[Rfam]
RNA sequence: ACGCACGCUUUCCAAGGAUCUGGGCUCCGUCUGUAGUCCUGGGUUCUCCAAGAGUGUGCCAGAGAAACGGGGAGACUUUGACUGUCUGGGCUGAACAGUGCCUGCGGCGGUCACUCUACUGUCCGACACCC
Dot-bracket structure: ...........((...((.(.((......)).)...))..))..........................(((.((.........(((.((...........)).).....)).......)).))).......
Record summary:
Shown here is a 131-nucleotide RNA sequence from Conger conger, a member of the family "Small nucleolar RNA SNORA44". ACA44 is a member of the H/ACA class of snoRNA that guide the sites of modification of uridines to pseudouridines. The family is grouped with related families in Rfam's "SNORA44 clan". NCBI's taxonomy places the organism under Eukaryota, Chordata, Vertebrata, Elopocephala, Conger. Rfam 15.1 lists 1,056 matches to the family in 599 species. It is annotated as an H/ACA-box small nucleolar RNA.